The record is a 100-nucleotide RNA sequence from Copranaerobaculum intestinale, which matches "Purine riboswitch aptamer" in Rfam. NCBI's taxonomy places the organism under Bacteria, Bacillati, Erysipelotrichia, Erysipelotrichaceae, Copranaerobaculum.
[Rfam]
RNA sequence: AAUAAGUACGUACAGAAUCCUUGUAUAAGGUCAUAAUCGGUUGACACGUUUCUACUCACCGACCGUAAAUCGGUGAACUACAAGGGAUUUUUGCGGUUAA
Numbered sequence: 001a002a003u004a005a006g007u008a009c010g011u012a013c014a015g016a017a018u019c020c021u022u023g024u025a026u027a028a029g030g031u032c033a034u035a036a037u038c039g040g041u042u043g044a045c046a047c048g049u050u051u052c053u054a055c056u057c058a059c060c061g062a063c064c065g066u067a068a069a070u071c072g073g074u075g076a077a078c079u080a081c082a083a084g085g086g087a088u089u090u091u092u093g094c095g096g097u098u099a100a
Base pairs, nucleotide, nucleotide: 018086019085020084021083022082023081024080025079029047030045031044032043033042056076057075058074059073060072061071062070